A member of the RNA family "Small nucleolar RNA SNORD87" from Pogona vitticeps, 83 nucleotides long. Gene Ontology terms of the family: nucleolus and RNA processing. By type it is a C/D-box small nucleolar RNA. Pairs were carried over by alignment from the consensus structure. On this family, see Gogolevskaya et al., Gene 2002: "U87 RNA, a novel C/D box small nucleolar RNA from mammalian cells". NCBI's taxonomy places the organism under Eukaryota, Lepidosauria, Unidentata, Amphibolurinae, Pogona.
RNA sequence: GCUGGCACAGUGAUGAUUUUUUUUGCCGUUUACCCAUCUGAAUGAAUAUUGAUGUGGUUAUUUCCUAAUUCUGAGAUGCCAGU
Numbered sequence: 001g002c003u004g005g006c007a008c009a010g011u012g013a014u015g016a017u018u019u020u021u022u023u024u025g026c027c028g029u030u031u032a033c034c035c036a037u038c039u040g041a042a043u044g045a046a047u048a049u050u051g052a053u054g055u056g057g058u059u060a061u062u063u064c065c066u067a068a069u070u071c072u073g074a075g076a077u078g079c080c081a082g083u
Stems, first nucleotide, its partner, number of pairs: 001083007